[Rfam]
Nucleotides: 122
Stems, first nucleotide, its partner, number of pairs: 006039006013031003017028001060118002063115004069106004078101007
Number, partner (000 for none) and nucleotide at each position: 001000a002000u003000c004000u005000g006039g007038g008037a009036g010035a011034u012000a013031g014030c015029c016000c017028c018000u019000g020000a021000u022000a023000a024000g025000a026000a027000u028017g029015g030014g031013c032000c033000c034011a035010u036009c037008u038007c039006u040000g041000u042000u043000g044000c045000a046000a047000c048000a049000g050000a051000g052000g053000a054000a055000a056000u057000u058000a059000a060118u061117g062000u063115c064114a065113a066112g067000a068000u069106a070105u071104c072103g073000u074000u075000u076000c077000a078101a079100u080099u081098g082097c083096c084095c085000u086000g087000a088000u089000u090000u091000g092000a093000a094000u095084g096083g097082g098081c099080a100079a101078u102000u103072u104071g105070a106069u107000u108000g109000u110000u111000g112066c113065u114064u115063g116000a117061c118060a119000a120000c121000a122000a